The family of this 67-nucleotide RNA sequence is "L2-Alphaproteobacteria ribosomal protein leader". Rfam classes the family as a cis-regulatory leader. On this family, see Eckert and Weinberg, BMC Microbiol 2020: "Discovery of 20 novel ribosomal leader candidates in bacteria and archaea". The base pairs follow the family's consensus structure, which is taken from published work.
RNA sequence: GGGGACCUUCGGGGCCCUAUAAUUCGGGUUUGUAACAACAGACCCUCUAGCUGACGGAAGACAGAAA
Numbered sequence: 001g002g003g004g005a006c007c008u009u010c011g012g013g014g015c016c017c018u019a020u021a022a023u024u025c026g027g028g029u030u031u032g033u034a035a036c037a038a039c040a041g042a043c044c045c046u047c048u049a050g051c052u053g054a055c056g057g058a059a060g061a062c063a064g065a066a067a
Base pairs, nucleotide, nucleotide: 001018002017003016004015006014007013008012026045027044028043029042030041031040032039
The sequence is in the family's curated seed alignment.